[Rfam]
RNA sequence: UUAGGGAAAUGACGAGAACGUAUUCCAAAGGUUGUUUCUGAGGGUAGAUAAAUGCUUUCCACCUCUUGAUUAUACCUUGCACGUCAGUCUGAUCCCAUA
Numbered sequence: 001u002u003a004g005g006g007a008a009a010u011g012a013c014g015a016g017a018a019c020g021u022a023u024u025c026c027a028a029a030g031g032u033u034g035u036u037u038c039u040g041a042g043g044g045u046a047g048a049u050a051a052a053u054g055c056u057u058u059c060c061a062c063c064u065c066u067u068g069a070u071u072a073u074a075c076c077u078u079g080c081a082c083g084u085c086a087g088u089c090u091g092a093u094c095c096c097a098u099a
Base pairs, nucleotide, nucleotide: 001099004096005095006094007093
Rfam assigns this 99-nucleotide RNA sequence from Digitaria exilis to the family "Small nucleolar RNA Z122". Gene Ontology terms of the family: RNA processing and nucleolus. NCBI's taxonomy places the organism under Eukaryota, Euphyllophyta, Panicodae, Paniceae, Digitaria. A reference for the family is Chen et al. (2003), "The high diversity of snoRNAs in plants: identification and comparative study of 120 snoRNA genes from Oryza sativa", Nucleic Acids Res. The match comes from Rfam's covariance-model search (50 bits). By type it is a C/D-box small nucleolar RNA.